[Rfam]
RNA: Group II catalytic intron D1-D4-3
RNA sequence: CGGUCUCCGGAACGCCGGCGGGAAGUAAGCCGCUAGCAAAACUGCGGGCCGAUGAACAUGAACAUCAUAUGAGGCGUAGGCCGGAGGCGAAUUGGCACCAGACGACGAAGCCACGUGAUCUAACGGCCACCGUAAAUGAUGCAGUUGUGCAGUGACAGUACAUAUU
Numbered sequence: 001c002g003g004u005c006u007c008c009g010g011a012a013c014g015c016c017g018g019c020g021g022g023a024a025g026u027a028a029g030c031c032g033c034u035a036g037c038a039a040a041a042c043u044g045c046g047g048g049c050c051g052a053u054g055a056a057c058a059u060g061a062a063c064a065u066c067a068u069a070u071g072a073g074g075c076g077u078a079g080g081c082c083g084g085a086g087g088c089g090a091a092u093u094g095g096c097a098c099c100a101g102a103c104g105a106c107g108a109a110g111c112c113a114c115g116u117g118a119u120c121u122a123a124c125g126g127c128c129a130c131c132g133u134a135a136a137u138g139a140u141g142c143a144g145u146u147g148u149g150c151a152g153u154g155a156c157a158g159u160a161c162a163u164a165u166u
Stems, first nucleotide, its partner, number of pairs: 001017004006012001029166001032163001036159002041153006047146003051142001063141006074133003079128005086112003092105003